[Rfam]
Small nucleolar RNA SNORA15: a 138-nucleotide RNA from Varanus komodoensis.
The family has 22 seed sequences and 974 matches in Rfam 15.1.
The literature on the family includes a 2001 paper in EMBO J by Huttenhofer et al., "RNomics: an experimental approach that identifies 201 candidates for novel, small, non-messenger RNAs in mouse".
NCBI's taxonomy places the organism under Eukaryota, Craniata, Sarcopterygii, Unidentata, Varanus.
From the family's description: ACA15 is a member of the H/ACA class of snoRNA that guide the sites of modification of uridines to pseudouridines.
RNA sequence: GCAUGGGUGAAUUCUGCAUUAGCGUUGGCAGUGGCUAAUGGAGUCAGACACCAUGCGAGAAGAUCGCGUCUGCCUGGGAUGUUCCUACCGGUGUGCUCUAUGUGAGGCAGCAUGGCCACAUCCGAGGCAGAUACAAAG
Numbered sequence: 001g002c003a004u005g006g007g008u009g010a011a012u013u014c015u016g017c018a019u020u021a022g023c024g025u026u027g028g029c030a031g032u033g034g035c036u037a038a039u040g041g042a043g044u045c046a047g048a049c050a051c052c053a054u055g056c057g058a059g060a061a062g063a064u065c066g067c068g069u070c071u072g073c074c075u076g077g078g079a080u081g082u083u084c085c086u087a088c089c090g091g092u093g094u095g096c097u098c099u100a101u102g103u104g105a106g107g108c109a110g111c112a113u114g115g116c117c118a119c120a121u122c123c124g125a126g127g128c129a130g131a132u133a134c135a136a137a138g
Stems, first nucleotide, its partner, number of pairs: 001056006014043002017040003069131003073127003077123003086120001090116001092114006098106001